[Rfam]
The family of this 81-nucleotide RNA from Ectocarpus sp. CCAP 1310/34 is "tRNA". By type it is a transfer RNA. The base pairs follow the family's consensus structure, which is taken from published work.
RNA sequence: GUCAGCGUGCCCGAGUGGUUAAGGGGAUGGAUUCGAAACCCAUUGUGAUUUCACGCGCAGGUUCAAAUCCUGCCGCUGACG
Numbered sequence: 001g002u003c004a005g006c007g008u009g010c011c012c013g014a015g016u017g018g019u020u021a022a023g024g025g026g027a028u029g030g031a032u033u034c035g036a037a038a039c040c041c042a043u044u045g046u047g048a049u050u051u052c053a054c055g056c057g058c059a060g061g062u063u064c065a066a067a068u069c070c071u072g073c074c075g076c077u078g079a080c081g
Stems, first nucleotide, its partner, number of pairs: 001080007010025003027043004057073005